Nucleotides: 095
Stems, first nucleotide, its partner, number of pairs: 001095007
Number, partner (000 for none) and nucleotide at each position: 001095c002094a003093u004092a005091u006090c007089a008000g009000a010000u011000g012000a013000u014000g015000a016000a017000a018000u019000u020000g021000g022000a023000a024000u025000a026000a027000u028000c029000u030000u031000a032000g033000g034000a035000c036000a037000c038000c039000u040000u041000c042000c043000u044000a045000c046000a047000c048000a049000g050000u051000a052000a053000u054000u055000a056000u057000u058000g059000c060000u061000g062000u063000g064000a065000a066000u067000g068000a069000g070000a071000a072000u073000g074000a075000a076000g077000u078000u079000u080000c081000c082000a083000u084000g085000c086000u087000g088000a089007u090006g091005a092004u093003g094002u095001g

Shown here is a 95-nucleotide sequence from Lupinus angustifolius, a member of the family "Small nucleolar RNA snoR31/Z110/Z27".
The family's consensus secondary structure was predicted with PFOLD.
About the family: This family contains several related snoRNAs including R31, Z27 and Z110.
It scores 62 bits against the family's covariance model.
The family has 8 seed sequences and 571 matches in Rfam 15.1.